[Rfam]
RNA sequence: ACUUGGGAAGCCGAAAACAAGUACUAGAGUAGGCA
Numbered sequence: 001a002c003u004u005g006g007g008a009a010g011c012c013g014a015a016a017a018c019a020a021g022u023a024c025u026a027g028a029g030u031a032g033g034c035a
Base pairs, nucleotide, nucleotide: 002021003020004019005018010034011033012032
Rfam assigns this 35-nucleotide RNA sequence from Sphingobacterium sp. JB170 to the family "DUF805b RNA". Rfam classes the family as a cis-regulatory element. Pairs were carried over by alignment from the consensus structure, which is taken from published work.